[Rfam]
RNA sequence: UUUUAACCAUGGCAAACCCGGGGAAACCCGGUGACGCAAAGCUAUAGGGACUGUAAAAUGUCAGCCAGCUGCAAUC
Numbered sequence: 001u002u003u004u005a006a007c008c009a010u011g012g013c014a015a016a017c018c019c020g021g022g023g024a025a026a027c028c029c030g031g032u033g034a035c036g037c038a039a040a041g042c043u044a045u046a047g048g049g050a051c052u053g054u055a056a057a058a059u060g061u062c063a064g065c066c067a068g069c070u071g072c073a074a075u076c
Stems, first nucleotide, its partner, number of pairs: 012037002018031005040070004047066002049062003
The family of this 76-nucleotide RNA from Oribacterium parvum is "c-di-GMP-I riboswitch aptamer".
The match comes from Rfam's covariance-model search (56 bits).
NCBI's taxonomy places the organism under Bacteria, Bacillota, Clostridia, Lachnospiraceae, Oribacterium parvum.
About the family: GEMM was predicted in a large-scale screen for bacterial structured RNA regulatory elements.